[Rfam]
RNA sequence: GUGUGAGGACGACCUCCCCUGAAUGGGAACAAUGUCCGGGACGGCCCGG
Numbered sequence: 001g002u003g004u005g006a007g008g009a010c011g012a013c014c015u016c017c018c019c020u021g022a023a024u025g026g027g028a029a030c031a032a033u034g035u036c037c038g039g040g041a042c043g044g045c046c047c048g049g
Base pairs, nucleotide, nucleotide: 001020003018005016006015007014008013036049037048038047039046040045
Shown here is a 49-nucleotide RNA sequence from Neorhizobium lilium, a member of the family "Guanidine-II riboswitch aptamer (mini-ykkC)". From the family's description: Simpler in structure and has fewer highly conserved nucleotide positions than the ykkC-yxkD leader. The family's consensus secondary structure is taken from published work. Gene Ontology term of the family: regulation of gene expression. For this family Rfam cites "Identification of 22 candidate structured RNAs in bacteria using the CMfinder comparative genomics pipeline" (Weinberg et al., Nucleic Acids Res, 2007). The organism belongs to Neorhizobium, within Bacteria.